[Rfam]
RNA: Fluoride riboswitch aptamer (crcB RNA motif)
RNA sequence: CCGGCAACGGGCGAUGGGGUUCGCCGCAACCGCCUCAGGCAGAUCCUAGGGAUAAAGUUUCUCUAAGACUUAGAGCUGGGGCUGAUGACUCCUACUCUUCU
Numbered sequence: 001c002c003g004g005c006a007a008c009g010g011g012c013g014a015u016g017g018g019g020u021u022c023g024c025c026g027c028a029a030c031c032g033c034c035u036c037a038g039g040c041a042g043a044u045c046c047u048a049g050g051g052a053u054a055a056a057g058u059u060u061c062u063c064u065a066a067g068a069c070u071u072a073g074a075g076c077u078g079g080g081g082c083u084g085a086u087g088a089c090u091c092c093u094a095c096u097c098u099u100c101u
Base pairs, nucleotide, nucleotide: 010025011024012023013022016092017091018090019089020088021087032082033081034080035079036078037077038076
Dot-bracket structure: .........[[[[..((((((]]]]......(((((((.....................................)))))))....)))))).........